[Rfam]
RNA: U7 small nuclear RNA
Organism: Rostratula benghalensis
RNA sequence: UAUUGAUUUCAGCUCUUUUAGUAUUUGUCCAGCAGGUUUCCCACCCUGUGGGAAGCCUCA
Numbered sequence: 001u002a003u004u005g006a007u008u009u010c011a012g013c014u015c016u017u018u019u020a021g022u023a024u025u026u027g028u029c030c031a032g033c034a035g036g037u038u039u040c041c042c043a044c045c046c047u048g049u050g051g052g053a054a055g056c057c058u059c060a
Stems, first nucleotide, its partner, number of pairs: 035057010